[Rfam]
RNA: t44 RNA
Organism: Tolumonas auensis
RNA sequence: UCAAUUAAUCUUAAAUACCACACACACAUCUAUAACCCGCUCCGGGGUGCCUACAUGGUCGGAGUGAGGGAUGUGUGGAGGCCCAAC
Numbered sequence: 001u002c003a004a005u006u007a008a009u010c011u012u013a014a015a016u017a018c019c020a021c022a023c024a025c026a027c028a029u030c031u032a033u034a035a036c037c038c039g040c041u042c043c044g045g046g047g048u049g050c051c052u053a054c055a056u057g058g059u060c061g062g063a064g065u066g067a068g069g070g071a072u073g074u075g076u077g078g079a080g081g082c083c084c085a086a087c
Base pairs, nucleotide, nucleotide: 023077024076025075026074027073028072029071030070036068038066039065040064041063042062043061044060049059050058051057
Dot-bracket structure: ......................((((((((.....(.(((((((....(((.....)))))))))).).))))))))..........